[Rfam]
RNA: MIR2617 microRNA precursor family
Organism: Medicago truncatula
RNA sequence: AUGUAGUGUGACAUGCUCGUUUGGGAUAUACUCUGAUGUAUUAUUUAAUAUUUAAUUGCUUUGGAAUAAUGGGGUGUUACAAUGAUG
Numbered sequence: 001a002u003g004u005a006g007u008g009u010g011a012c013a014u015g016c017u018c019g020u021u022u023g024g025g026a027u028a029u030a031c032u033c034u035g036a037u038g039u040a041u042u043a044u045u046u047a048a049u050a051u052u053u054a055a056u057u058g059c060u061u062u063g064g065a066a067u068a069a070u071g072g073g074g075u076g077u078u079a080c081a082a083u084g085a086u087g
Stems, first nucleotide, its partner, number of pairs: 002087003005083001007081008016073006